[Rfam]
RNA: 6C RNA
RNA sequence: GAUGCAGCGUCCCGUCCCCCCAACUUGCGGGGCACUGCAUGUGGCGGCAUCCCAUUUCCCCCCAAUGGGAUGCCGCCCCUC
Numbered sequence: 001g002a003u004g005c006a007g008c009g010u011c012c013c014g015u016c017c018c019c020c021c022a023a024c025u026u027g028c029g030g031g032g033c034a035c036u037g038c039a040u041g042u043g044g045c046g047g048c049a050u051c052c053c054a055u056u057u058c059c060c061c062c063c064a065a066u067g068g069g070a071u072g073c074c075g076c077c078c079c080u081c
Stems, first nucleotide, its partner, number of pairs: 002040006009033007043077013